Source information
Rfam assigns this 163-nucleotide RNA sequence from Nicotiana tabacum to the family "U12 minor spliceosomal RNA". It is annotated as a spliceosomal small nuclear RNA. For this family Rfam cites "The divergent U12-type spliceosome is required for pre-mRNA splicing and is essential for development in Drosophila" (Otake et al., Mol Cell, 2002). Pairs were carried over by alignment from the consensus structure.

[Rfam]
RNA sequence: UUGCCUUAAACUAAUGAGUAAGGAAAACAAAGCGGACGGUGAGAGCCGGCCGCAGCGCUCUUGAAACACUUUUGUGGCGCAAGAAUUUGUGGAGGGGUUAUAGGCUGGCCAAGUGUUGACGCUGCCUACUUCGCAGAACUCGCUUGUGCGGGCCUCCCAACCC
Dot-bracket structure: ...(((((..........)))))........((((.(((......))).)))).((((..................))))..............(((((..(((((.(.((.(((......((((.......))))....))).))..).)))))...)))))
Numbered sequence: 001u002u003g004c005c006u007u008a009a010a011c012u013a014a015u016g017a018g019u020a021a022g023g024a025a026a027a028c029a030a031a032g033c034g035g036a037c038g039g040u041g042a043g044a045g046c047c048g049g050c051c052g053c054a055g056c057g058c059u060c061u062u063g064a065a066a067c068a069c070u071u072u073u074g075u076g077g078c079g080c081a082a083g084a085a086u087u088u089g090u091g092g093a094g095g096g097g098u099u100a101u102a103g104g105c106u107g108g109c110c111a112a113g114u115g116u117u118g119a120c121g122c123u124g125c126c127u128a129c130u131u132c133g134c135a136g137a138a139c140u141c142g143c144u145u146g147u148g149c150g151g152g153c154c155u156c157c158c159a160a161c162c163c
Stems, first nucleotide, its partner, number of pairs: 004023005032053004037048003055080004095163005102155005108149001110146002113143003122136004